The record is a 224-nucleotide sequence from Tepidicaulis marinus, which matches "permuted transfer-messenger RNA" in Rfam. The source organism's lineage runs through Bacteria, Pseudomonadota, Alphaproteobacteria, Parvibaculaceae and Tepidicaulis. Pairs were carried over by alignment from the consensus structure, which is taken from published work. The match comes from Rfam's covariance-model search (148 bits).
RNA sequence: GGCGAUAAACGGACUACGUAAUAAGCCUAUCGGACCCGGGGGCAGUACCCGGCGCCUCCACCAAUAUCCCCGCGCUUGAAACAGUUUUGCGGGCUUCAGGGGGGCGAAACAGGAUCGACGAGGGUGUAAAGGUAGUUUUUUCGCUCGGCAUGGUAGCCACCGUUAUCGGGCCAAACUUGAUAGUUGCCAACGACAACUAUGCUGAAGCACGUCUCGCUGCCUAA
Numbered sequence: 001g002g003c004g005a006u007a008a009a010c011g012g013a014c015u016a017c018g019u020a021a022u023a024a025g026c027c028u029a030u031c032g033g034a035c036c037c038g039g040g041g042g043c044a045g046u047a048c049c050c051g052g053c054g055c056c057u058c059c060a061c062c063a064a065u066a067u068c069c070c071c072g073c074g075c076u077u078g079a080a081a082c083a084g085u086u087u088u089g090c091g092g093g094c095u096u097c098a099g100g101g102g103g104g105c106g107a108a109a110c111a112g113g114a115u116c117g118a119c120g121a122g123g124g125u126g127u128a129a130a131g132g133u134a135g136u137u138u139u140u141u142c143g144c145u146c147g148g149c150a151u152g153g154u155a156g157c158c159a160c161c162g163u164u165a166u167c168g169g170g171c172c173a174a175a176c177u178u179g180a181u182a183g184u185u186g187c188c189a190a191c192g193a194c195a196a197c198u199a200u201g202c203u204g205a206a207g208c209a210c211g212u213c214u215c216g217c218u219g220c221c222u223a224a
Stems, first nucleotide, its partner, number of pairs: 001145005014135004026124003030121003036052005053106007146162003